Rfam assigns this 93-nucleotide sequence from Rhododendron simsii to the family "Small nucleolar RNA Z266".
[Rfam]
RNA sequence: UUGUGGCAAGAAUGAUGAAACAAUUAGAUGAGUGAAUGGAGAUAUCCAUGAUCUAAACUUUCGAGGCUUAUUGAUAUUCUGACUUUGCCACUC
Numbered sequence: 001u002u003g004u005g006g007c008a009a010g011a012a013u014g015a016u017g018a019a020a021c022a023a024u025u026a027g028a029u030g031a032g033u034g035a036a037u038g039g040a041g042a043u044a045u046c047c048a049u050g051a052u053c054u055a056a057a058c059u060u061u062c063g064a065g066g067c068u069u070a071u072u073g074a075u076a077u078u079c080u081g082a083c084u085u086u087g088c089c090a091c092u093c
Stems, first nucleotide, its partner, number of pairs: 003091006009084002

It scores 60 bits against the family's covariance model.